[Rfam]
RNA: mir-999 microRNA precursor family
Organism: Nannospalax galili
RNA sequence: CUUACCUUCCGAGACAGGGUCUCUCACUGAACACAGUCUAGUUGAAUCAUUGAGUUCUGUGUUCAGUGAGAGACCCUGUCUCGGAAGGUAAG
Numbered sequence: 001c002u003u004a005c006c007u008u009c010c011g012a013g014a015c016a017g018g019g020u021c022u023c024u025c026a027c028u029g030a031a032c033a034c035a036g037u038c039u040a041g042u043u044g045a046a047u048c049a050u051u052g053a054g055u056u057c058u059g060u061g062u063u064c065a066g067u068g069a070g071a072g073a074c075c076c077u078g079u080c081u082c083g084g085a086a087g088g089u090a091a092g
Base pairs, nucleotide, nucleotide: 003090004089005088006087007086008085009084010083011082013080014079015078016077017076018075019074020073021072023070024069025068026067027066028065030063031062032061033060034059035058036057